U12 minor spliceosomal RNA: a 153-nucleotide sequence from Capitella teleta. It is annotated as a spliceosomal small nuclear RNA.
RNA sequence: AUGCCUUAAACUAAUGAGUAAGGAAAAUAAUGAGUCCUGGUGACGCGGGGCUCCCAGGUUCACUAUCCUGGACGAAUUUCUGAGAGGGCUCAGGUCGUCCGUGGGGUGGCCCGCCUACUUUUGCGGGCUGCCCGCGUUGUAGCGAUCUGCCCG
Number, nucleotide and partner (000 for none) at each position: 001a000002u000003g000004c023005c022006u021007u020008a019009a000010a000011c000012u000013a000014a000015u000016g000017a000018g000019u008020a007021a006022g005023g004024a000025a000026a000027a000028u000029a000030a000031u000032g053033a052034g051035u050036c049037c048038u047039g046040g000041u000042g000043a000044c000045g000046c039047g038048g037049g036050g035051c034052u033053c032054c071055c070056a069057g068058g067059u000060u000061c000062a000063c000064u000065a000066u000067c058068c057069u056070g055071g054072a000073c000074g000075a000076a000077u000078u000079u000080c000081u000082g000083a000084g000085a000086g152087g151088g150089c149090u000091c000092a148093g147094g146095u145096c144097g143098u142099c000100c000101g137102u136103g000104g133105g132106g131107u130108g129109g000110c127111c126112c125113g124114c123115c000116u000117a000118c000119u000120u000121u000122u000123g114124c113125g112126g111127g110128c000129u108130g107131c106132c105133c104134g000135c000136g102137u101138u000139g000140u000141a000142g098143c097144g096145a095146u094147c093148u092149g089150c088151c087152c086153g000